[Rfam]
RNA sequence: GGGGACGUUACGGAUUCGACAGGGAUAGAUCGAGCUUAAGCUGCGAGCCGAGGGGAUCGUCCUCGUAAAAACGUCACCUAAAUAUAACUGGCAAAGAAAAUUACGCUUUAGCUGCUUAAUAAUUGCGGCUAACUCCUCCCGCCAUCGCCCAUGUGGUCGGGUCAGGGGUUCAUCAUGAGUGGGAUACGCCCAAGUCCACCGUCUGAGGACGCGGGAAGAGACGAAUCAGACUAGCUGCUUGGAGGCCUGUCGGUAGGCGGAAGAUGCGGCGAAAGCAAAAUAUACCGACUACGCUCGUAGACGCUUAAGUGGCGAUAUCUUUGGACGUGGGUUCGACUCCCACCGUCUCCAUUU
Numbered sequence: 001g002g003g004g005a006c007g008u009u010a011c012g013g014a015u016u017c018g019a020c021a022g023g024g025a026u027a028g029a030u031c032g033a034g035c036u037u038a039a040g041c042u043g044c045g046a047g048c049c050g051a052g053g054g055g056a057u058c059g060u061c062c063u064c065g066u067a068a069a070a071a072c073g074u075c076a077c078c079u080a081a082a083u084a085u086a087a088c089u090g091g092c093a094a095a096g097a098a099a100a101u102u103a104c105g106c107u108u109u110a111g112c113u114g115c116u117u118a119a120u121a122a123u124u125g126c127g128g129c130u131a132a133c134u135c136c137u138c139c140c141g142c143c144a145u146c147g148c149c150c151a152u153g154u155g156g157u158c159g160g161g162u163c164a165g166g167g168g169u170u171c172a173u174c175a176u177g178a179g180u181g182g183g184a185u186a187c188g189c190c191c192a193a194g195u196c197c198a199c200c201g202u203c204u205g206a207g208g209a210c211g212c213g214g215g216a217a218g219a220g221a222c223g224a225a226u227c228a229g230a231c232u233a234g235c236u237g238c239u240u241g242g243a244g245g246c247c248u249g250u251c252g253g254u255a256g257g258c259g260g261a262a263g264a265u266g267c268g269g270c271g272a273a274a275g276c277a278a279a280a281u282a283u284a285c286c287g288a289c290u291a292c293g294c295u296c297g298u299a300g301a302c303g304c305u306u307a308a309g310u311g312g313c314g315a316u317a318u319c320u321u322u323g324g325a326c327g328u329g330g331g332u333u334c335g336a337c338u339c340c341c342a343c344c345g346u347c348u349c350c351a352u353u354u
Base pairs, nucleotide, nucleotide: 001350002349003348004347005346006345007344020323021322022321023320024319025318026317027316034310035309036308037307038306039305040304041303044297045296046295047294048293049065050064051063052062053061055075056074057073060070109131110130111129112128113127114126115125132169133168134167135166136165137164138161139160140159141158142156143155144154145153148183149182150181151180152179189215190214191213194210195209196208197207201232204229234270235269236268237267238266240264245258246257247256249289250288251287252286253283254282255281327343328342329341330340331339

A member of the RNA family "transfer-messenger RNA" from Anoxybacillus sp. B7M1, 354 nucleotides long. About the family: Bacterial tmRNA, also known as 10Sa RNA or SsrA, is named for its dual tRNA and mRNA-like properties. It is annotated as a non-coding RNA gene. The source organism's lineage runs through Bacteria, Bacillota, Bacilli, Caryophanales and Anoxybacillus. The base pairs follow the family's consensus structure, which is taken from published work. It scores 222 bits against the family's covariance model.